[Rfam]
RNA: Small nucleolar RNA SNORA28
Nucleotides: 126
Stems, first nucleotide, its partner, number of pairs: 009048003012041004017036002020033003064119004069114002074112001076110001087100002090097001
Number, partner (000 for none) and nucleotide at each position: 001000a002000a003000g004000c005000a006000a007000c008000a009048c010047u011046c012041u013040g014039u015038g016000g017036c018035a019000a020033a021032u022031u023000a024000u025000c026000a027000a028000a029000a030000u031022a032021g033020u034000c035018u036017g037000a038015c039014a040013c041012a042000a043000u044000u045000u046011g047010a048009g049000c050000u051000u052000g053000c054000u055000a056000c057000a058000g059000c060000a061000a062000u063000a064119a065118a066117g067116u068000c069114u070113a071000a072000c073000c074112u075000a076110u077000u078000c079000c080000a081000u082000c083000a084000c085000u086000c087100u088099c089000c090097c091000c092000u093000c094000u095000g096000u097090g098000a099088g100087a101000u102000g103000g104000u105000c106000c107000a108000u109000u110076a111000c112074a113070u114069a115000a116067a117066c118065u119064u120000c121000a122000a123000c124000a125000g126000c